[Rfam]
The record is an 80-nucleotide RNA from Desulfurivibrio alkaliphilus, which matches "Group II catalytic intron D1-D4-1" in Rfam. The organism belongs to Desulfurivibrio alkaliphilus, within Bacteria. The literature on the family includes a 2001 paper in Trends Genet by Bonen and Vogel, "The ins and outs of group II introns". Group II introns are found in rRNA, tRNA and mRNA of organelles in fungi, plants and protists, and also in mRNA in bacteria.
RNA sequence: CGUCCUGCAUGGCAACAUGCCGGAUGACCAGGCAGGAGUCAGCAGAGGCCAUAGUAGUUCCGCCACGCGGAACGAAGGGC
Numbered sequence: 001c002g003u004c005c006u007g008c009a010u011g012g013c014a015a016c017a018u019g020c021c022g023g024a025u026g027a028c029c030a031g032g033c034a035g036g037a038g039u040c041a042g043c044a045g046a047g048g049c050c051a052u053a054g055u056a057g058u059u060c061c062g063c064c065a066c067g068c069g070g071a072a073c074g075a076a077g078g079g080c
Base pairs, nucleotide, nucleotide: 001026002025004023005022007020008019009018010017011016039046040045048080049079050078057073058072059071060070061069062068